[Rfam]
RNA sequence: GUGGGGCGCGUCUAGGGUUCCGCCGGCGGCAUUCGUCGAACAGGCCGGGUCUGGUCCGAGAGACGCAGGCGGCCGGCACCGACGCAGACCGUUCCACGGCGGGAGAAAAGCCCGGGAGAC
Numbered sequence: 001g002u003g004g005g006g007c008g009c010g011u012c013u014a015g016g017g018u019u020c021c022g023c024c025g026g027c028g029g030c031a032u033u034c035g036u037c038g039a040a041c042a043g044g045c046c047g048g049g050u051c052u053g054g055u056c057c058g059a060g061a062g063a064c065g066c067a068g069g070c071g072g073c074c075g076g077c078a079c080c081g082a083c084g085c086a087g088a089c090c091g092u093u094c095c096a097c098g099g100c101g102g103g104a105g106a107a108a109a110g111c112c113c114g115g116g117a118g119a120c
Base pairs, nucleotide, nucleotide: 008066009065010064011063012062015057016056020054021053022051023048024047025046026045027044068093069092070091071090072089074087095115097118101113102112103111
RNA: Guanidine-I riboswitch aptamer